The record is a 69-nucleotide RNA sequence from Microtus ochrogaster, which matches "mir-33 microRNA precursor family" in Rfam. A reference for the family is Li et al. (2009), "Direct sequencing and expression analysis of a large number of miRNAs in Aedes aegypti and a multi-species survey of novel mosquito miRNAs", BMC Genomics. The family's consensus secondary structure was predicted with PFOLD. Rfam links the family to the GO terms RISC complex and gene silencing by miRNA.
RNA sequence: CUGGGGUGCAUUGUAGUUGCAUUGCAUGUUCCUGCAGUACCUGUGCAAUGUUUCCACAGUGCAUCCCAG
Numbered sequence: 001c002u003g004g005g006g007u008g009c010a011u012u013g014u015a016g017u018u019g020c021a022u023u024g025c026a027u028g029u030u031c032c033u034g035c036a037g038u039a040c041c042u043g044u045g046c047a048a049u050g051u052u053u054c055c056a057c058a059g060u061g062c063a064u065c066c067c068a069g
Base pairs, nucleotide, nucleotide: 001069002068003067004066006065007063008062009061010060011059012058013057014056016054019051021049022048023047024046025045026044027043